[Rfam]
A member of the RNA family "Small nucleolar RNA R64/Z200 family" from Punica granatum, 96 nucleotides long. Its family is annotated with RNA processing and nucleolus in the Gene Ontology. The match comes from Rfam's covariance-model search (65 bits). For this family Rfam cites "Purified box C/D snoRNPs are able to reproduce site-specific 2'-O-methylation of target RNA in vitro" (Galardi et al., Mol Cell Biol, 2002).
RNA sequence: UCUGUGCGGUGAUGAAUUAUGAAAGAAAAAGAUCACAUGUCAGACUUCAGAGACUUCGGUCUGUGAGAAGGAUAAUUCAUGAUCUCUGAGCACGAA
Numbered sequence: 001u002c003u004g005u006g007c008g009g010u011g012a013u014g015a016a017u018u019a020u021g022a023a024a025g026a027a028a029a030a031g032a033u034c035a036c037a038u039g040u041c042a043g044a045c046u047u048c049a050g051a052g053a054c055u056u057c058g059g060u061c062u063g064u065g066a067g068a069a070g071g072a073u074a075a076u077u078c079a080u081g082a083u084c085u086c087u088g089a090g091c092a093c094g095a096a
Base pairs, nucleotide, nucleotide: 001096003094004093005092006091007090052061053060054059
Dot-bracket structure: (.(((((............................................(((....)))............................))))).)